[Rfam]
RNA sequence: GGAGGUAGAAUUUUGAGUAACUAUUGAUGUGGUGUGUGAAAUUUUAUCCUCAUAUCACAGCAGUAGUUACCUAGGAUUCUACCGUA
Numbered sequence: 001g002g003a004g005g006u007a008g009a010a011u012u013u014u015g016a017g018u019a020a021c022u023a024u025u026g027a028u029g030u031g032g033u034g035u036g037u038g039a040a041a042u043u044u045u046a047u048c049c050u051c052a053u054a055u056c057a058c059a060g061c062a063g064u065a066g067u068u069a070c071c072u073a074g075g076a077u078u079c080u081a082c083c084g085u086a
Stems, first nucleotide, its partner, number of pairs: 004083008016072002019068004024063003028059009

mir-2944 microRNA precursor family: an 86-nucleotide sequence from Nasonia vitripennis. Rfam 15.1 lists 66 matches to the family in 42 species. A search with the family's covariance model found it, with a score of 60 bits.